[Rfam]
RNA sequence: UUGACCGUGAACGGCCAGUUGCGGCUGAUCCCGCUGAGCAGCUCGUCGCCGAAGUGGUCCCCGUCGGCCAAGGUGGCGAGCGUGAUCUCGUCGCCGUACUCGCCCGGCGCCACCUUGGCCACCUUGCCGUGCGCGACCAGCACCACCUCGUCCAGCGGGCCGCCGUGGCGCACGAUCACCUCACCGGCCGCGUACUCGUGCUGCACGAACCGGCCGGCCAGCGCCGUGAGCGUGUCCUCGUCGUCGAAACCGCGCAGCAGAGCCAGUUCCGCCAAUUCCUGCGGUACGACCCGCACGUCGGCGCCGACGUUGGUGAAGCUCACCCGCCCGUCGCCGACGGUGUAGGUCAGCCGGCGGUUGACCCGGUAGGCGCCACCGGCGGCCUCCACCCAGGGCAGCAUCCGCAGCAGCCAGCGCGGGCUGAUGCCCUGCAUCUGCGGCCGGGUCUUGGUCGUGGUCGCCAGGGUGCGCGCGGCGGCCGUGCCCAGGCUCAGCCGGGCUUCGGCAG
Dot-bracket structure: ......(((.(...(..(..(.((.(((.(.(..(.(((..(..(.((((((.((..((.(.((.(((......(.((((.(((.(......).))).))))).....)))......((..((...(.(((.(((....(........((....((.((..(.(((.....)))..)......)).))..))....)....))).)..)).)...))...)))).).))..))((.(..(((((......((.(.((....(......)......))).))....)))))..).)).)))))).))..))).).)..).))).)).))((((......))))........((((.((....((.....))..)).)))).)...).))).(((((((.((..(((.(.......))))...)).))))))).....((.(...(..((((((.......))))))...)...).)).(.((..(((.(......).)))...)).)..
Saccharopolyspora sRNA 350: a 508-nucleotide sequence from Amycolatopsis saalfeldensis. The family's RNA type in Rfam is antisense RNA. The source organism's lineage runs through Bacteria, Bacillati, Actinomycetota, Actinomycetes and Amycolatopsis. For this family Rfam cites "Prediction and characterization of small non-coding RNAs related to secondary metabolites in Saccharopolyspora erythraea" (Liu et al., PLoS One, 2013).